[Rfam]
Description:
Small nucleolar RNA SNORA33: a 130-nucleotide RNA from Felis catus. It is one of the family's seed sequences. Rfam describes the family as follows. ACA33 is a member of the H/ACA class of snoRNA that guide the sites of modification of uridines to pseudouridines. The organism belongs to Felis, within Eukaryota. The family has 28 seed sequences and 1,176 matches in Rfam 15.1.
RNA sequence: AAGCCGGCCAAUGAAUCUGCUUAGCUGAAUGUGUUUCUGCAGAAAUUUAAAAAACGCUGGCAAUAGGAACGCCAUGUUACGAGCCUUAAAGACAUUGAAGUCAUUAAGGUCCCUGAAAAUGGCUACAAGA
Numbered sequence: 001a002a003g004c005c006g007g008c009c010a011a012u013g014a015a016u017c018u019g020c021u022u023a024g025c026u027g028a029a030u031g032u033g034u035u036u037c038u039g040c041a042g043a044a045a046u047u048u049a050a051a052a053a054a055c056g057c058u059g060g061c062a063a064u065a066g067g068a069a070c071g072c073c074a075u076g077u078u079a080c081g082a083g084c085c086u087u088a089a090a091g092a093c094a095u096u097g098a099a100g101u102c103a104u105u106a107a108g109g110u111c112c113c114u115g116a117a118a119a120u121g122g123c124u125a126c127a128a129g130a
Base pairs, nucleotide, nucleotide: 003061004060005059006058007057016043017042018041019040020039071123072122073121074120083110084109085108086107087106088105089104091102092101093100